[Rfam]
The family of this 316-nucleotide RNA from Amniculicola lignicola is "Group I catalytic intron". Rfam 15.1 lists 5,602 matches to the family in 1,395 species.

RNA sequence: ACAACGACUCUAAACAGGAGAGGGCUGCUUAAAUGCUAGUCUGCGUGUAGCAGGCGACACUAUCAAAUUGCGGGAACACCCUAAAGACCUCAAUACUAAGCGUCGUAGGAAACCACAGCGUGGCCAAGCUAAUAGCCCUAGGUAUAGUAACAGCUUGAGGUAUAAUGCUCCGCAGGAGCUGAAAUGGGCAAUCCGCAGCCAAGUCCUAAAGCGCUCAUCCCUAGGCGCCAUAGAUACUGUUUACAGGCCAAAUAGUAGUAGGUGACCCCAUACAGGGUUACUUAAGAUAUAGUCAGGCCCCUUCAGAAAUAUUGGG
Numbered sequence: 001a002c003a004a005c006g007a008c009u010c011u012a013a014a015c016a017g018g019a020g021a022g023g024g025c026u027g028c029u030u031a032a033a034u035g036c037u038a039g040u041c042u043g044c045g046u047g048u049a050g051c052a053g054g055c056g057a058c059a060c061u062a063u064c065a066a067a068u069u070g071c072g073g074g075a076a077c078a079c080c081c082u083a084a085a086g087a088c089c090u091c092a093a094u095a096c097u098a099a100g101c102g103u104c105g106u107a108g109g110a111a112a113c114c115a116c117a118g119c120g121u122g123g124c125c126a127a128g129c130u131a132a133u134a135g136c137c138c139u140a141g142g143u144a145u146a147g148u149a150a151c152a153g154c155u156u157g158a159g160g161u162a163u164a165a166u167g168c169u170c171c172g173c174a175g176g177a178g179c180u181g182a183a184a185u186g187g188g189c190a191a192u193c194c195g196c197a198g199c200c201a202a203g204u205c206c207u208a209a210a211g212c213g214c215u216c217a218u219c220c221c222u223a224g225g226c227g228c229c230a231u232a233g234a235u236a237c238u239g240u241u242u243a244c245a246g247g248c249c250a251a252a253u254a255g256u257a258g259u260a261g262g263u264g265a266c267c268c269c270a271u272a273c274a275g276g277g278u279u280a281c282u283u284a285a286g287a288u289a290u291a292g293u294c295a296g297g298c299c300c301c302u303u304c305a306g307a308a309a310u311a312u313u314g315g316g
Stems, first nucleotide, its partner, number of pairs: 005024001008022004028035001059259004065253001069197006079188003198240002203235003211228005246294003250290001262281007301314001305310001
A reference for the family is Cech (1990), "Self-splicing of group I introns", Annu Rev Biochem. Its family is annotated with Group I intron splicing in the Gene Ontology. The family's consensus secondary structure is taken from published work.